Small nucleolar RNA SNORD47: a 77-nucleotide RNA sequence from Carlito syrichta. Taxonomically the source falls in Carlito (Eukaryota, Craniata, Mammalia, Tarsiidae). The family has 20 seed sequences and 755 matches in Rfam 15.1.
[Rfam]
RNA sequence: AACCAGUGAUGUGAUGAUUCUGUCAAAUAAAUAGAAUGGUAUCACAUGUAAAACUGUUUCAGUUUGAUUCUGAGGUU
Numbered sequence: 001a002a003c004c005a006g007u008g009a010u011g012u013g014a015u016g017a018u019u020c021u022g023u024c025a026a027a028u029a030a031a032u033a034g035a036a037u038g039g040u041a042u043c044a045c046a047u048g049u050a051a052a053a054c055u056g057u058u059u060c061a062g063u064u065u066g067a068u069u070c071u072g073a074g075g076u077u
Stems, first nucleotide, its partner, number of pairs: 001077004